RNA sequence: UCGCGUAUGCUGGUUGCAGCUGACCCAAUUGUUAGUCAACGAUCAAUUGGUCCCCUCCAACCAGCUAACGAGA
Numbered sequence: 001u002c003g004c005g006u007a008u009g010c011u012g013g014u015u016g017c018a019g020c021u022g023a024c025c026c027a028a029u030u031g032u033u034a035g036u037c038a039a040c041g042a043u044c045a046a047u048u049g050g051u052c053c054c055c056u057c058c059a060a061c062c063a064g065c066u067a068a069c070g071a072g073a
Stems, first nucleotide, its partner, number of pairs: 004070003009065008018056001022052002025050007
Dot-bracket structure: ...(((..((((((((.(...((.(((((((............)))))))))...).))))))))..)))...